[Rfam]
This 77-nucleotide RNA sequence from Crocodylus porosus belongs to the Rfam family "Mammalian CPEB3 ribozyme". The mammalian CPEB3 ribozyme is a self cleaving RNA located in the second intron of the CPEB3 gene which belongs to a family of genes regulating messenger RNA polyadenylation. The base pairs follow the family's consensus structure, which is taken from published work.
RNA sequence: AUUGUAUUUGUAUGGGUCAUAGCAGAAGUGCUCACAGGGUGGCCAUGUCAGAUUCCAAUGAAUCUGUGAAUCCUUCU
Numbered sequence: 001a002u003u004g005u006a007u008u009u010g011u012a013u014g015g016g017u018c019a020u021a022g023c024a025g026a027a028g029u030g031c032u033c034a035c036a037g038g039g040u041g042g043c044c045a046u047g048u049c050a051g052a053u054u055c056c057a058a059u060g061a062a063u064c065u066g067u068g069a070a071u072c073c074u075u076c077u
Base pairs, nucleotide, nucleotide: 013045014044016043017042018041021077022076024074025073027071028040029039049066050065051064052063053062054061055060